A member of the RNA family "U4 spliceosomal RNA" from Etheostoma spectabile, 139 nucleotides long. The family is grouped with related families in Rfam's "U4 clan". The family's consensus secondary structure is taken from published work. Rfam's curators write: U4 small nuclear RNA (U4 snRNA) is a component of the major U2-dependent spliceosome. The organism belongs to Oligocephalus, within Eukaryota.
RNA sequence: AUCCUUUCGCAGCGGCAUUUUCAUAGUCUAUGAGGUUUUACUGAGACGUGAUUAUUGCUGUUGAAAACUUUACCCAAUACCCCGCCGGGAUGACUUGAAAUAUAGUCAGCUCUGGCAUUUUUGUCAGUCUCAUGGGAGA
Dot-bracket structure: ....................((((.(((.....(((...)))..)))))))................................((((((.(((((........))))).))).)))...........((((....))))